[Rfam]
The record is a 171-nucleotide RNA sequence from Erysipelatoclostridium sp. AM42-17, which matches "Lysine riboswitch aptamer" in Rfam.
RNA sequence: AAGUUAGAUAGAGGCGCAGGUUGUUAAAAAUUCUUUGUUAUACGAUGCAACGAGAUAAAGAGGGCGGAACGCUUGCCGAAGGGUUCAUUAUUUGCAUAUGAUGAAUUCCUGGGUAAUUAGGGAAUACCUAAUUAACUGUCAUUACUUAAGUAAUGUUGGGCUAUCAUUGUU
Numbered sequence: 001a002a003g004u005u006a007g008a009u010a011g012a013g014g015c016g017c018a019g020g021u022u023g024u025u026a027a028a029a030a031u032u033c034u035u036u037g038u039u040a041u042a043c044g045a046u047g048c049a050a051c052g053a054g055a056u057a058a059a060g061a062g063g064g065c066g067g068a069a070c071g072c073u074u075g076c077c078g079a080a081g082g083g084u085u086c087a088u089u090a091u092u093u094g095c096a097u098a099u100g101a102u103g104a105a106u107u108c109c110u111g112g113g114u115a116a117u118u119a120g121g122g123a124a125u126a127c128c129u130a131a132u133u134a135a136c137u138g139u140c141a142u143u144a145c146u147u148a149a150g151u152a153a154u155g156u157u158g159g160g161c162u163a164u165c166a167u168u169g170u171u
Base pairs, nucleotide, nucleotide: 007165008164009163010162011161016076017075018074019073020072021071023070024069025068032061033060034059035058036057037056038055039054080110081109082108083107084105085104086103087102088101089100090099091098111137112136114134115133116132117131118130119129120128121127140155141154142153143152144151145150
Dot-bracket structure: ......(((((....((((((.(((......((((((((..............))))))))......)))))))))...((((((((((((......)))))))).))))((.((((((((.....)))))))).))..((((((....)))))).....)))))......
A search with the family's covariance model found it, with a score of 86 bits.